Annotation: A member of the RNA family "mraW RNA" from Micrococcus sp. HMSC067E09, 109 nucleotides long. It is annotated as a cis-regulatory element. A search with the family's covariance model found it, with a score of 60 bits.
RNA sequence: CACGGAUCCCUGAGCGUGGCCUCCAGCCGACGCGAGCCACCUGACCUGACUUCCCCUGGGCCAGGCGGAACGCGGUCGGAUGGGGAUCAGGCCCAGGGAUCCGUGUCGU
Numbered sequence: 001c002a003c004g005g006a007u008c009c010c011u012g013a014g015c016g017u018g019g020c021c022u023c024c025a026g027c028c029g030a031c032g033c034g035a036g037c038c039a040c041c042u043g044a045c046c047u048g049a050c051u052u053c054c055c056c057u058g059g060g061c062c063a064g065g066c067g068g069a070a071c072g073c074g075g076u077c078g079g080a081u082g083g084g085g086a087u088c089a090g091g092c093c094c095a096g097g098g099a100u101c102c103g104u105g106u107c108g109u
Stems, first nucleotide, its partner, number of pairs: 010096003014092002018088002021085005027079004031074004037068002040065004045060003

Lineage of the source: Bacteria > Bacillati > Actinomycetes > Micrococcaceae > Micrococcus.